[Rfam]
RNA sequence: CCACCUGCUUGCGUGAUCGUCUUCUCACCGAACACACGGGCAGGCGGAAAAGGGGCCCCCGCGCGGUCGACUCGCGCGGGGGCCCUGU
Numbered sequence: 001c002c003a004c005c006u007g008c009u010u011g012c013g014u015g016a017u018c019g020u021c022u023u024c025u026c027a028c029c030g031a032a033c034a035c036a037c038g039g040g041c042a043g044g045c046g047g048a049a050a051a052g053g054g055g056c057c058c059c060c061g062c063g064c065g066g067u068c069g070a071c072u073c074g075c076g077c078g079g080g081g082g083c084c085c086u087g088u
Stems, first nucleotide, its partner, number of pairs: 001046001004044007013035003019029001050088001052086014

The family of this 88-nucleotide RNA sequence from Streptomyces malaysiensis is "sodF sRNA". Its family is annotated with negative regulation of translation, regulation of mRNA stability and mRNA binding in the Gene Ontology. For this family Rfam cites "Inverse regulation of Fe- and Ni-containing SOD genes by a Fur family regulator Nur through small RNA processed from 3'UTR of the sodF mRNA" (Kim et al., Nucleic Acids Res, 2014). Rfam 15.1 lists 336 matches to the family in 317 species. The organism belongs to Streptomyces, within Bacteria. By type it is a small RNA.